[Rfam]
RNA: SAM (S-adenosyl methionine) riboswitch aptamer
Organism: Actinoplanes aureus
RNA sequence: GGUCAUGAGCGCCAGCGACAAGCCCCGGCUUGCUGGCCGGCAACCCUCCUGUCGUGGGCGGGGUGCCCCGGGUGAUGACCGGGCCCGGCGCGCGGUGCGCCGGGCAAGCCGCGAAC
Numbered sequence: 001g002g003u004c005a006u007g008a009g010c011g012c013c014a015g016c017g018a019c020a021a022g023c024c025c026c027g028g029c030u031u032g033c034u035g036g037c038c039g040g041c042a043a044c045c046c047u048c049c050u051g052u053c054g055u056g057g058g059c060g061g062g063g064u065g066c067c068c069c070g071g072g073u074g075a076u077g078a079c080c081g082g083g084c085c086c087g088g089c090g091c092g093c094g095g096u097g098c099g100c101c102g103g104g105c106a107a108g109c110c111g112c113g114a115a116c
Stems, first nucleotide, its partner, number of pairs: 001080004009038001011037006021030002039067003044063003048058002083105010